[Rfam]
This 77-nucleotide sequence from Leptobrachium leishanense belongs to the Rfam family "mir-30 microRNA precursor family". Gene Ontology terms of the family: RISC complex and gene silencing by miRNA. The source organism's lineage runs through Eukaryota, Euteleostomi, Dipnotetrapodomorpha, Amphibia and Leptobrachium. The base pairs follow the family's consensus structure, which was predicted with PFOLD. Rfam's curators write: This family consists of the mammalian microRNA (miRNA) precursor mir-30a. Animal miRNAs are transcribed as ~70nt precursors and subsequently processed by the Dicer enzyme to give a ~22nt product. In this case the mature sequence comes from both the 3' (miR-30) and 5' (mir-97-6) arms of the precursor. The literature on the family includes a 2001 paper in Science by Lagos-Quintana et al., "Identification of novel genes coding for small expressed RNAs".
RNA sequence: UGAGCAAGUGUAAACAUCCUCGACUGGAAGCUGUGGGGCAACGAAGAGGCUUUCAGUCGGAUGUUUGCAGCUGCCAG
Numbered sequence: 001u002g003a004g005c006a007a008g009u010g011u012a013a014a015c016a017u018c019c020u021c022g023a024c025u026g027g028a029a030g031c032u033g034u035g036g037g038g039c040a041a042c043g044a045a046g047a048g049g050c051u052u053u054c055a056g057u058c059g060g061a062u063g064u065u066u067g068c069a070g071c072u073g074c075c076a077g
Base pairs, nucleotide, nucleotide: 004074005073006072009069010068011067012066013065014064015063016062017061018060019059023057024056025055026054027053028052029051030050031049032048